[Rfam]
RNA sequence: AGAAUAUAAUAACCCGCCUCUUAACUUUUAACUAAAAAAGCUAAGAACCGGCUUUUAAAUAAGAGUUUUAAUAACUGGUUCUUAGUUUUUUUAGUUAAAAGUUAAGAGACGGGCUCUUAUAUUCC
Numbered sequence: 001a002g003a004a005u006a007u008a009a010u011a012a013c014c015c016g017c018c019u020c021u022u023a024a025c026u027u028u029u030a031a032c033u034a035a036a037a038a039a040g041c042u043a044a045g046a047a048c049c050g051g052c053u054u055u056u057a058a059a060u061a062a063g064a065g066u067u068u069u070a071a072u073a074a075c076u077g078g079u080u081c082u083u084a085g086u087u088u089u090u091u092u093a094g095u096u097a098a099a100a101g102u103u104a105a106g107a108g109a110c111g112g113g114c115u116c117u118u119a120u121a122u123u124c125c
Stems, first nucleotide, its partner, number of pairs: 002124008011115001013113004018108022041085007